[Rfam]
RNA sequence: ACUUCAUCAAGAGCGGCUGAGAGAUUGGCUCGACGACGCCGCAGCAACCGUGGGAUUCCCUCAAGGUGCUAAUGCCAGUGACGAUGAAAG
Number, nucleotide and partner (000 for none) at each position: 001a000002c000003u088004u087005c086006a085007u084008c083009a000010a000011g000012a000013g042014c041015g040016g039017c038018u000019g000020a000021g031022a030023g029024a000025u078026u077027g076028g075029c023030u022031c021032g000033a000034c000035g000036a000037c000038g017039c016040c015041g014042c013043a070044g069045c068046a067047a000048c066049c065050g062051u000052g060053g059054g000055a000056u000057u000058c000059c053060c052061u000062c050063a000064a000065g049066g048067u046068g045069c044070u043071a000072a000073u000074g082075c028076c027077a026078g025079u000080g000081a000082c074083g008084a007085u006086g005087a004088a003089a000090g000
Shown here is a 90-nucleotide RNA sequence from Mycolicibacterium neoaurum, a member of the family "SAM riboswitch aptamer (S box leader)". Taxonomically the source falls in Mycolicibacterium neoaurum (Bacteria, Actinomycetes, Mycobacteriales, Mycobacterium (subgen. Mycolicibacterium)). Pairs were carried over by alignment from the consensus structure, which is taken from published work. About the family: The SAM riboswitch is found upstream of a number of genes which code for proteins involved in methionine or cysteine biosynthesis in Gram-positive bacteria.